[Rfam]
This 51-nucleotide sequence from Caulobacter sp. 17J65-9 belongs to the Rfam family "Guanidine-II riboswitch aptamer (mini-ykkC)". The organism belongs to Caulobacter, within Bacteria. Simpler in structure and has fewer highly conserved nucleotide positions than the ykkC-yxkD leader.
RNA sequence: CCGCGGGGACGACCCCGCCGGAAUUCCCAGACAUCGGUGGGGACGACCCCG
Numbered sequence: 001c002c003g004c005g006g007g008g009a010c011g012a013c014c015c016c017g018c019c020g021g022a023a024u025u026c027c028c029a030g031a032c033a034u035c036g037g038u039g040g041g042g043a044c045g046a047c048c049c050c051g
Stems, first nucleotide, its partner, number of pairs: 001020001003018006038051005